[Rfam]
RNA sequence: UGCUCCGGUGGACCUGGCGCUCUUCCCAAAGAACCACGAGAGGGAAAGAAACCCCACCAAACCCCACCCCUCCCUCCCACGGCCCCCGCUCACUCGCACGAGUGAACAUCACCAACUCAGCUGGCUUCGGGACGGGUUGCCUGCUCUACGCUCAGCGCGACAACAGCAGACAUGCGACGGCCCCCGCCGGGACGGCAAUCCCAGUGCGAGGGCCUGACCACCGAGGAAGUAGACCCCUUCCUG
Numbered sequence: 001u002g003c004u005c006c007g008g009u010g011g012a013c014c015u016g017g018c019g020c021u022c023u024u025c026c027c028a029a030a031g032a033a034c035c036a037c038g039a040g041a042g043g044g045a046a047a048g049a050a051a052c053c054c055c056a057c058c059a060a061a062c063c064c065c066a067c068c069c070c071u072c073c074c075u076c077c078c079a080c081g082g083c084c085c086c087c088g089c090u091c092a093c094u095c096g097c098a099c100g101a102g103u104g105a106a107c108a109u110c111a112c113c114a115a116c117u118c119a120g121c122u123g124g125c126u127u128c129g130g131g132a133c134g135g136g137u138u139g140c141c142u143g144c145u146c147u148a149c150g151c152u153c154a155g156c157g158c159g160a161c162a163a164c165a166g167c168a169g170a171c172a173u174g175c176g177a178c179g180g181c182c183c184c185c186g187c188c189g190g191g192a193c194g195g196c197a198a199u200c201c202c203a204g205u206g207c208g209a210g211g212g213c214c215u216g217a218c219c220a221c222c223g224a225g226g227a228a229g230u231a232g233a234c235c236c237c238u239u240c241c242u243g
Stems, first nucleotide, its partner, number of pairs: 007222004016077002019074001090105006120156005179214005185208003189202004225241005
RNA: Streptomyces sRNA 4677